A member of the RNA family "Alphaproteobacteria transfer-messenger RNA" from Rhizomicrobium sp. SCGC AG-212-E05, 339 nucleotides long.
[Rfam]
RNA sequence: GCCCUUCAAUUCUUAACCCCCAGCGCCUAUAUUAUGCAGGUCACCCGGGUUCGCCCGGGCGUCUAUGGCGAUAAACGACUGUGUAAUAAGCAGCCCGGACCCGGGGGCGGUACCCGGCGCCUCCACCAUAAGCCCAUUUUUCCUCUUGAAGAGGGAUGGGUUUUUGUGGGGGCGAAACAGGAUCGACGGAUGUGUAAAGGCAGUUCUUUUGCUCGGUAUGGUUCCGCCGUCAUCGGACUAUUGUUUAGGUGCCAACGAUAAUGAAAUGGCCCUCGCUGCCUAACUUCGGUUAGCCAAGCGCGGUUUUGGUAGUUGCACCGGGCAACAGAAGCAACUGCC
Numbered sequence: 001g002c003c004c005u006u007c008a009a010u011u012c013u014u015a016a017c018c019c020c021c022a023g024c025g026c027c028u029a030u031a032u033u034a035u036g037c038a039g040g041u042c043a044c045c046c047g048g049g050u051u052c053g054c055c056c057g058g059g060c061g062u063c064u065a066u067g068g069c070g071a072u073a074a075a076c077g078a079c080u081g082u083g084u085a086a087u088a089a090g091c092a093g094c095c096c097g098g099a100c101c102c103g104g105g106g107g108c109g110g111u112a113c114c115c116g117g118c119g120c121c122u123c124c125a126c127c128a129u130a131a132g133c134c135c136a137u138u139u140u141u142c143c144u145c146u147u148g149a150a151g152a153g154g155g156a157u158g159g160g161u162u163u164u165u166g167u168g169g170g171g172g173c174g175a176a177a178c179a180g181g182a183u184c185g186a187c188g189g190a191u192g193u194g195u196a197a198a199g200g201c202a203g204u205u206c207u208u209u210u211g212c213u214c215g216g217u218a219u220g221g222u223u224c225c226g227c228c229g230u231c232a233u234c235g236g237a238c239u240a241u242u243g244u245u246u247a248g249g250u251g252c253c254a255a256c257g258a259u260a261a262u263g264a265a266a267u268g269g270c271c272c273u274c275g276c277u278g279c280c281u282a283a284c285u286u287c288g289g290u291u292a293g294c295c296a297a298g299c300g301c302g303g304u305u306u307u308g309g310u311a312g313u314u315g316c317a318c319c320g321g322g323c324a325a326c327a328g329a330a331g332c333a334a335c336u337g338c339c
Base pairs, nucleotide, nucleotide: 040063042061067213068212069211070210071209077206078205079203080202081201082200091192092191095189096188097187101117102116103115104114105113118174119173120172121171122170123169124168125167126166214229215228216227217226219240220239221238223237224236225235301320302319303318304317309336314331